[Rfam]
Annotation
Rfam assigns this 80-nucleotide RNA sequence from Cyclopterus lumpus to the family "Small nucleolar RNA SNORD101". It is annotated as a C/D-box small nucleolar RNA. Rfam 15.1 lists 658 matches to the family in 617 species. The match comes from Rfam's covariance-model search (47 bits). A reference for the family is Vitali et al. (2003), "Identification of 13 novel human modification guide RNAs", Nucleic Acids Res.
Nucleotides: 080
Stems, first nucleotide, its partner, number of pairs: 001080003006076002
Number, partner (000 for none) and nucleotide at each position: 001080g002079c003078a004000c005000u006076u007075g008000a009000a010000u011000g012000a013000u014000g015000a016000c017000u018000u019000u020000a021000c022000u023000u024000u025000c026000u027000u028000u029000u030000g031000u032000c033000g034000g035000a036000u037000a038000c039000c040000c041000c042000u043000u044000c045000a046000c047000u048000c049000u050000a051000c052000a053000a054000u055000g056000a057000g058000u059000g060000a061000g062000a063000u064000c065000c066000c067000a068000u069000u070000u071000c072000u073000g074000a075007c076006a077000c078003u079002g080001c